mir-150 microRNA precursor family: an 84-nucleotide sequence from Phrynocephalus forsythii. The literature on the family includes a 2004 paper in Genome Biol by Miska et al., "Microarray analysis of microRNA expression in the developing mammalian brain". Pairs were carried over by alignment from the consensus structure, which was predicted with RNAalifold. The organism belongs to Phrynocephalus, within Eukaryota.
RNA sequence: CUCUCCCUCCCUCUCUCCCAACCCUUGUACCAGUGCCAGUCAUAGUCCCCACUGGUACAGAGGAUGGAAGGGUGGGUGGCGUAG
Numbered sequence: 001c002u003c004u005c006c007c008u009c010c011c012u013c014u015c016u017c018c019c020a021a022c023c024c025u026u027g028u029a030c031c032a033g034u035g036c037c038a039g040u041c042a043u044a045g046u047c048c049c050c051a052c053u054g055g056u057a058c059a060g061a062g063g064a065u066g067g068a069a070g071g072g073u074g075g076g077u078g079g080c081g082u083a084g
Base pairs, nucleotide, nucleotide: 010075011074014071015070016068017067018066023060026059027058028057029056030055031054032053